[Rfam]
RNA sequence: GUUCGAUCGUGUUUAUUGUGGACCUUGCCGUGUGACGUCACAGUAAGGCACGCGGUGAAUGCCAACGAAC
Numbered sequence: 001g002u003u004c005g006a007u008c009g010u011g012u013u014u015a016u017u018g019u020g021g022a023c024c025u026u027g028c029c030g031u032g033u034g035a036c037g038u039c040a041c042a043g044u045a046a047g048g049c050a051c052g053c054g055g056u057g058a059a060u061g062c063c064a065a066c067g068a069a070c
Base pairs, nucleotide, nucleotide: 003068004067005066009062010061011060012059013058014057015056016055018053019052020051023048024047025046026045027044028043030041
Dot-bracket structure: ..(((...((((((((.(((..((((((.(..........).))))))..))).))))))))...)))..